[Rfam]
RNA sequence: CCAUCCGCUACGGGAGAAUCCGGCCCCCGCGCCGGUGCCGAAGGAGCAACCGCCCCGGUAAACUCUCAGGCCCCAGGACCGUGGCGGACAG
Numbered sequence: 001c002c003a004u005c006c007g008c009u010a011c012g013g014g015a016g017a018a019u020c021c022g023g024c025c026c027c028c029g030c031g032c033c034g035g036u037g038c039c040g041a042a043g044g045a046g047c048a049a050c051c052g053c054c055c056c057g058g059u060a061a062a063c064u065c066u067c068a069g070g071c072c073c074c075a076g077g078a079c080c081g082u083g084g085c086g087g088a089c090a091g
Stems, first nucleotide, its partner, number of pairs: 006086008020035004037071003040067002044065003050058002